[Rfam]
RNA: malK-II RNA
RNA sequence: AUUCCUACUGUUAUUGCCUGUAAGUCAUUUUUUUAUAAGAAAUUUCAUAUAAUGAAGGGCAGUAA
Number, nucleotide and partner (000 for none) at each position: 001a000002u000003u000004c000005c000006u000007a000008c000009u000010g000011u065012u064013a063014u062015u061016g060017c059018c058019u000020g000021u000022a000023a000024g000025u000026c000027a000028u000029u000030u000031u000032u000033u000034u000035a000036u000037a000038a000039g000040a000041a000042a000043u000044u000045u000046c000047a000048u000049a000050u000051a000052a000053u000054g000055a000056a000057g000058g018059g017060c016061a015062g014063u013064a012065a011